The record is a 46-nucleotide RNA sequence from Mytilus galloprovincialis, which matches "Histone 3' UTR stem-loop" in Rfam. Pairs were carried over by alignment from the consensus structure, which is taken from published work. About the family: The mRNAs of metazoan histone genes lack a poly-A tail. 3' end processing occurs at a site between a highly conserved stem-loop (modelled by this family) and a purine rich region around 20 nts downstream (the histone downstream element, or HDE). It is annotated as a cis-regulatory element. It scores 41 bits against the family's covariance model.
RNA sequence: CAAACGGCCCUUUUUAGGGCCACCAAUACUUCACAGAAAUAGUUUU
Numbered sequence: 001c002a003a004a005c006g007g008c009c010c011u012u013u014u015u016a017g018g019g020c021c022a023c024c025a026a027u028a029c030u031u032c033a034c035a036g037a038a039a040u041a042g043u044u045u046u
Stems, first nucleotide, its partner, number of pairs: 006021006